Rfam assigns this 166-nucleotide RNA sequence from Sorex araneus to the family "Small Cajal body specific RNA 1". Rfam's curators put it in the seed alignment. Rfam's curators write: scaRNAs are a specific class of small nuclear RNAs which localise to the Cajal bodies and guide the modification of RNA polymerase II transcribed spliceosomal RNAs U1, U2, U4, U5 and U12. ACA35 belong to the H/ACA box class of guide RNAs as it has the predicted hairpin-hinge-hairpin-tail structure, conserved H/ACA-box motifs and is found associated with GAR1. It is predicted to guide pseudouridylation of the U2 spliceosomal snRNA at residue U89. The family's consensus secondary structure was predicted with RNAalifold. By type it is a small Cajal body RNA.

[Rfam]
RNA sequence: UAGCCCUUAAUGCUAGCUGAGCUCUCUGUAUUCCAGCCUUGAUGACAGGCUUGUGGUAGCGUGUGAGAGCUGAGUUCAAGAAGCGUGAUAUUAAAACAAAAGCCAUGACUUUUUGAAACCAGGCUUGCCAAGACACGCUGUGAGUUCACAACUCAUCUGCACAAAU
Numbered sequence: 001u002a003g004c005c006c007u008u009a010a011u012g013c014u015a016g017c018u019g020a021g022c023u024c025u026c027u028g029u030a031u032u033c034c035a036g037c038c039u040u041g042a043u044g045a046c047a048g049g050c051u052u053g054u055g056g057u058a059g060c061g062u063g064u065g066a067g068a069g070c071u072g073a074g075u076u077c078a079a080g081a082a083g084c085g086u087g088a089u090a091u092u093a094a095a096a097c098a099a100a101a102g103c104c105a106u107g108a109c110u111u112u113u114u115g116a117a118a119c120c121a122g123g124c125u126u127g128c129c130a131a132g133a134c135a136c137g138c139u140g141u142g143a144g145u146u147c148a149c150a151a152c153u154c155a156u157c158u159g160c161a162c163a164a165a166u
Base pairs, nucleotide, nucleotide: 003086004085006083007082008081015076016075017074018073020071021070022069023068024067025066026065029058030057031056032055033053035051036050037049038048039047102160103159123138124137126135127134140156141155142154143153144152145151